[Rfam]
RNA sequence: AAAAGUCCGUCCGGGUGCUUGAGGAAUCAGGCUGAGAUAGUAGCUAUUAUCCGCUACUGACCGUUAAUCUGAUCUGGGUAAUGCCAGCGUAGAGAGUGAUGUAUUCAUCAUA
Numbered sequence: 001a002a003a004a005g006u007c008c009g010u011c012c013g014g015g016u017g018c019u020u021g022a023g024g025a026a027u028c029a030g031g032c033u034g035a036g037a038u039a040g041u042a043g044c045u046a047u048u049a050u051c052c053g054c055u056a057c058u059g060a061c062c063g064u065u066a067a068u069c070u071g072a073u074c075u076g077g078g079u080a081a082u083g084c085c086a087g088c089g090u091a092g093a094g095a096g097u098g099a100u101g102u103a104u105u106c107a108u109c110a111u112a
Stems, first nucleotide, its partner, number of pairs: 008098003012063003017032005039058005068093004074087004